[Rfam]
RNA sequence: UGCCGCAUUGGUCGAUUGGGGAACUCAUCAAUUACAUUUUAUAAACCGAGACUCGUUUUUGGUUUCAAUGGCGGGCCGCAGCCUUCGGGAUUCCGAUUUAUCGGAACAGCGGAUUACAAAGAAACUAAGACACUCAAAUCCUGUCAAACGGAGUUUCGUCUUAUUCCACCGGUGCGGCUUCUUAU
Numbered sequence: 001u002g003c004c005g006c007a008u009u010g011g012u013c014g015a016u017u018g019g020g021g022a023a024c025u026c027a028u029c030a031a032u033u034a035c036a037u038u039u040u041a042u043a044a045a046c047c048g049a050g051a052c053u054c055g056u057u058u059u060u061g062g063u064u065u066c067a068a069u070g071g072c073g074g075g076c077c078g079c080a081g082c083c084u085u086c087g088g089g090a091u092u093c094c095g096a097u098u099u100a101u102c103g104g105a106a107c108a109g110c111g112g113a114u115u116a117c118a119a120a121g122a123a124a125c126u127a128a129g130a131c132a133c134u135c136a137a138a139u140c141c142u143g144u145c146a147a148a149c150g151g152a153g154u155u156u157c158g159u160c161u162u163a164u165u166c167c168a169c170c171g172g173u174g175c176g177g178c179u180u181c182u183u184a185u
Stems, first nucleotide, its partner, number of pairs: 055131003059128008069118002076112004082089002097106003
The record is a 185-nucleotide RNA sequence from Fermentimonas caenicola, which matches "Bacteroidales-1 6S-Bacteroidales RNA suggested" in Rfam. The family's consensus secondary structure is taken from published work. The source organism's lineage runs through Bacteria, Bacteroidota, Bacteroidales, Dysgonomonadaceae and Fermentimonas. By type it is a small RNA. Bacteroidales-1 was first reported in a comparative genomics-based approach of genome and metagenome sequences from Weinberg et al. 2010 In a high-resolution transcriptome map study of Bacteroides thetaiotaomicron, Ryan et al. 2020 report this sRNA as 6S RNA homologue of Bacteroides, in the study they obtain evidence of small product RNAs (pRNAs) related to 6S function.